[Rfam]
RNA sequence: GGGAGGUGUGAUAUCAUGGUUCCUGGGAGGUGUGAUCCUGUGCUCCCUGGGGGGUCUGAUCCUGUGCUUCCU
Numbered sequence: 001g002g003g004a005g006g007u008g009u010g011a012u013a014u015c016a017u018g019g020u021u022c023c024u025g026g027g028a029g030g031u032g033u034g035a036u037c038c039u040g041u042g043c044u045c046c047c048u049g050g051g052g053g054g055u056c057u058g059a060u061c062c063u064g065u066g067c068u069u070c071c072u
Stems, first nucleotide, its partner, number of pairs: 001071005014059003018055001020053008029044001031042004

Background:
Shown here is a 72-nucleotide RNA sequence from Pan troglodytes, a member of the family "mir-3689 microRNA precursor family". The source organism's lineage runs through Eukaryota, Bilateria, Sarcopterygii, Catarrhini and Pan.